[Rfam]
RNA: tRNA
Organism: Rhizophagus clarus
RNA sequence: GCUUCCUUGGCGCAAUAGGCAGUCGCGUCAGUCCCAUAAGCUGAAGGUUGUGAGUUCGAACCUCACAGGUAGCA
Numbered sequence: 001g002c003u004u005c006c007u008u009g010g011c012g013c014a015a016u017a018g019g020c021a022g023u024c025g026c027g028u029c030a031g032u033c034c035c036a037u038a039a040g041c042u043g044a045a046g047g048u049u050g051u052g053a054g055u056u057c058g059a060a061c062c063u064c065a066c067a068g069g070u071a072g073c074a
Stems, first nucleotide, its partner, number of pairs: 001073003005069003010026003028044005050066005